[Rfam]
RNA sequence: CCCCCCGCAGGGCGAGAAGACCCCGUGGAGCUUCACCGCAGCCUGCCGUUGACCCUCGGGUGGAGGCGCGUAGCGUAGGUGGGAGCCAGUGAGGGGCCUCUUUCGGGAGGCCCUGAGGCGGCAAUGAAACACCACCCACCUCUGCCUGAGGGUCUAACCUGGCGCAAGCCAGGGACAGCGGUAGGUGGGCGGUUCGGCUGGGGCGGCACGCCCGCGAAAGGGUAACACGGGCGCCCAAAGGUCGGCUCAGGCGGGUCAGAAACCCGCCGUAGAGUGCAAGGGCAAAAGCCGGCCUGACCGGGCCCUUAACUGCAUGGGGCCCGGACGGGAAACCGCGGCCUAGCGCACGCUCGUGCCCCCUUCGGUGGGGGCCGGGCACGACGGAAAAGUUACCCCGGGGAUAACAGAGUCGUCGCGGGCGAGAGCUCCUAUCGACCCCGCGGUUUGCUACAUCGAUGUCGGCUUUUCCCAUCCUGGGGGUGCAGCAGCCCCCAAGGGUGGGGCUGCCCGCCCAUUAAAGGGGAACGUGAGCUGGGUUCAGACCGUCGUGAGACAGGUUGGGCUCUACCCGCGGGGGGUGCC
Numbered sequence: 001c002c003c004c005c006c007g008c009a010g011g012g013c014g015a016g017a018a019g020a021c022c023c024c025g026u027g028g029a030g031c032u033u034c035a036c037c038g039c040a041g042c043c044u045g046c047c048g049u050u051g052a053c054c055c056u057c058g059g060g061u062g063g064a065g066g067c068g069c070g071u072a073g074c075g076u077a078g079g080u081g082g083g084a085g086c087c088a089g090u091g092a093g094g095g096g097c098c099u100c101u102u103u104c105g106g107g108a109g110g111c112c113c114u115g116a117g118g119c120g121g122c123a124a125u126g127a128a129a130c131a132c133c134a135c136c137c138a139c140c141u142c143u144g145c146c147u148g149a150g151g152g153u154c155u156a157a158c159c160u161g162g163c164g165c166a167a168g169c170c171a172g173g174g175a176c177a178g179c180g181g182u183a184g185g186u187g188g189g190c191g192g193u194u195c196g197g198c199u200g201g202g203g204c205g206g207c208a209c210g211c212c213c214g215c216g217a218a219a220g221g222g223u224a225a226c227a228c229g230g231g232c233g234c235c236c237a238a239a240g241g242u243c244g245g246c247u248c249a250g251g252c253g254g255g256u257c258a259g260a261a262a263c264c265c266g267c268c269g270u271a272g273a274g275u276g277c278a279a280g281g282g283c284a285a286a287a288g289c290c291g292g293c294c295u296g297a298c299c300g301g302g303c304c305c306u307u308a309a310c311u312g313c314a315u316g317g318g319g320c321c322c323g324g325a326c327g328g329g330a331a332a333c334c335g336c337g338g339c340c341u342a343g344c345g346c347a348c349g350c351u352c353g354u355g356c357c358c359c360c361u362u363c364g365g366u367g368g369g370g371g372c373c374g375g376g377c378a379c380g381a382c383g384g385a386a387a388a389g390u391u392a393c394c395c396c397g398g399g400g401a402u403a404a405c406a407g408a409g410u411c412g413u414c415g416c417g418g419g420c421g422a423g424a425g426c427u428c429c430u431a432u433c434g435a436c437c438c439c440g441c442g443g444u445u446u447g448c449u450a451c452a453u454c455g456a457u458g459u460c461g462g463c464u465u466u467u468c469c470c471a472u473c474c475u476g477g478g479g480g481u482g483c484a485g486c487a488g489c490c491c492c493c494a495a496g497g498g499u500g501g502g503g504c505u506g507c508c509c510g511c512c513c514a515u516u517a518a519a520g521g522g523g524a525a526c527g528u529g530a531g532c533u534g535g536g537u538u539c540a541g542a543c544c545g546u547c548g549u550g551a552g553a554c555a556g557g558u559u560g561g562g563c564u565c566u567a568c569c570c571g572c573g574g575g576g577g578g579u580g581c582c
Base pairs, nucleotide, nucleotide: 001578002577003576004575005574006573007572008571010570011569012568014565015564022399023398024397025396027395028394029391030390031389032388033387035193036192037191038190042185043184044183045182046181047180048179051154052153053152054151055150056149057148058147059146060145061144062143063142064141065140066139068137078136079135080134081133082132085119086118087117097110098109099108100107101106158173159172160171161170196209197207198206199205210232211231212230213229214228235338236337241293242292243291244290245289246288247273248272250268251267252266253265254264255263274283275282298324299323300322301321302320303319304318305317306316326335328333349377350376351375352374353373355372357371358370359369360368408449409448410447412446413443414442415441416440417439418438419437423433424432460535461533462532463531464530465527466524467523468522469521470520473498474497477492478491479490480489481488501513502512503511504510541559542558543557544556545554546553547552
The record is a 582-nucleotide part of an RNA from Acidilobus saccharovorans, which matches "Archaeal large subunit ribosomal RNA" in Rfam.
Its family is annotated with structural constituent of ribosome and ribosome in the Gene Ontology.